[Rfam]
Rfam assigns this 132-nucleotide sequence from Canis lupus to the family "Small nucleolar RNA SNORA63".
RNA sequence: AAGCAGGAUACAGACUACAGUAAAGCUGUUAAGUGCUGUACUGUACCUCCUCCUGCUCAAAACAAAGUUGUUUCCUAACUAUACCAGUCUGCUAUACUACUGUAGCAGAUAGGGAUACUUGAUCUCAUGCAC
Numbered sequence: 001a002a003g004c005a006g007g008a009u010a011c012a013g014a015c016u017a018c019a020g021u022a023a024a025g026c027u028g029u030u031a032a033g034u035g036c037u038g039u040a041c042u043g044u045a046c047c048u049c050c051u052c053c054u055g056c057u058c059a060a061a062a063c064a065a066a067g068u069u070g071u072u073u074c075c076u077a078a079c080u081a082u083a084c085c086a087g088u089c090u091g092c093u094a095u096a097c098u099a100c101u102g103u104a105g106c107a108g109a110u111a112g113g114g115a116u117a118c119u120u121g122a123u124c125u126c127a128u129g130c131a132c
Stems, first nucleotide, its partner, number of pairs: 003056005017044006024037003084113002087110001089108004
It is annotated as an H/ACA-box small nucleolar RNA. Rfam describes the family as follows. E3 belongs to the H/ACA class of snoRNAs and is involved in the processing of eukaryotic pre-rRNA and has regions of complementarity to 18S rRNA. E3 is encoded in introns in the gene for protein synthesis initiation factor 4AII. A reference for the family is Mishra and Eliceiri (1997), "Three small nucleolar RNAs that are involved in ribosomal RNA precursor processing", Proc Natl Acad Sci U S A.